[Rfam]
Small nucleolar RNA SNORD63: a 67-nucleotide sequence from Parambassis ranga. snoRNA U63 is found in both humans and mice. The source organism's lineage runs through Eukaryota, Bilateria, Neoteleostei, Ambassidae and Parambassis. The base pairs follow the family's consensus structure, which was predicted with PFOLD. By type it is a C/D-box small nucleolar RNA.

RNA sequence: AUGCUGUGAUGAAUAUAUAUAACACAUCAUGCUGACACACUGUGGUGAAUACUCAACCCUGAGCAUA
Numbered sequence: 001a002u003g004c005u006g007u008g009a010u011g012a013a014u015a016u017a018u019a020u021a022a023c024a025c026a027u028c029a030u031g032c033u034g035a036c037a038c039a040c041u042g043u044g045g046u047g048a049a050u051a052c053u054c055a056a057c058c059c060u061g062a063g064c065a066u067a
Stems, first nucleotide, its partner, number of pairs: 001066004